[Rfam]
The record is a 176-nucleotide sequence from Diaphorobacter sp. HDW4B, which matches "FMN riboswitch aptamer (RFN element)" in Rfam. The family's consensus secondary structure is taken from published work. The match comes from Rfam's covariance-model search (97 bits).
RNA sequence: CCACGUUCUCAGGGCGGGGCGAAAUUCCCCACCGGCGGUAUCUGGCAGGUCUUGAAAAGACAAGGCGAUGUCAGCAGCCCGCGAGCGCUGCCAUCUUUGUCAUGAAGAAGGCAGGUCAGCAGAUCUGGUGAGAUGCCAGAGCCGACGGUCACAGUCCGGAUGAAAGAGAAACGUGA
Number, nucleotide and partner (000 for none) at each position: 001c000002c000003a174004c173005g172006u171007u169008c168009u167010c166011a000012g000013g000014g000015c000016g000017g029018g028019g027020c000021g000022a000023a000024a000025u000026u000027c019028c018029c017030c000031a155032c154033c144034g143035g082036c081037g080038g079039u000040a000041u000042c000043u000044g000045g000046c000047a000048g000049g000050u000051c000052u000053u000054g000055a000056a000057a000058a000059g000060a000061c000062a000063a000064g000065g000066c000067g000068a000069u000070g000071u000072c000073a000074g000075c000076a000077g000078c000079c038080c037081g036082c035083g000084a000085g120086c119087g000088c000089u000090g000091c000092c000093a000094u000095c000096u000097u000098u000099g000100u000101c000102a000103u000104g000105a000106a000107g000108a000109a000110g000111g000112c000113a000114g000115g000116u000117c000118a000119g086120c085121a000122g000123a000124u140125c139126u138127g137128g136129u000130g000131a000132g000133a000134u000135g000136c128137c127138a126139g125140a124141g000142c000143c034144g033145a000146c158147g157148g156149u000150c000151a000152c000153a000154g032155u031156c148157c147158g146159g000160a000161u000162g000163a000164a000165a000166g010167a009168g008169a007170a000171a006172c005173g004174u003175g000176a000